[Rfam]
RNA sequence: GGCCUCCCUCUGUGGGGUAAUCGAUCUCAGGGCCCCCAGUCGAUCACCCCGCAGAGGGAGGCC
Numbered sequence: 001g002g003c004c005u006c007c008c009u010c011u012g013u014g015g016g017g018u019a020a021u022c023g024a025u026c027u028c029a030g031g032g033c034c035c036c037c038a039g040u041c042g043a044u045c046a047c048c049c050c051g052c053a054g055a056g057g058g059a060g061g062c063c
Base pairs, nucleotide, nucleotide: 001063002062003061004060005059006058007057008056009055010054011053012052013051014050015049016048017047018046020044021043022042023041024040025039030037031036
RNA: mir-9242 microRNA precursor family
Organism: Pipistrellus kuhlii